Shown here is a 98-nucleotide RNA from Caenorhabditis elegans, a member of the family "Small nucleolar RNA sn2991". The base pairs follow the family's consensus structure, which was predicted with WAR. Lineage of the source: Eukaryota > Metazoa > Eumetazoa > Ecdysozoa > Caenorhabditis. By type it is a C/D-box small nucleolar RNA. It is one of the family's seed sequences. The literature on the family includes a 2002 paper in Biochem Biophys Res Commun by Higa et al., "Location of 2(')-O-methyl nucleotides in 26S rRNA and methylation guide snoRNAs in Caenorhabditis elegans".
Nucleotides: 098
Stems, first nucleotide, its partner, number of pairs: 001098006
Number, partner (000 for none) and nucleotide at each position: 001098a002097u003096u004095u005094c006093u007000a008000g009000a010000u011000g012000a013000u014000g015000g016000a017000a018000g019000a020000g021000c022000a023000g024000u025000g026000a027000a028000a029000g030000a031000u032000c033000u034000u035000u036000g037000a038000a039000g040000a041000g042000c043000c044000g045000a046000a047000u048000g049000u050000u051000c052000a053000g054000a055000a056000u057000c058000a059000a060000c061000a062000g063000a064000u065000a066000c067000c068000a069000a070000u071000g072000a073000a074000g075000c076000a077000u078000c079000u080000g081000u082000a083000u084000c085000u086000c087000c088000u089000g090000a091000c092000g093006a094005g095004a096003a097002a098001u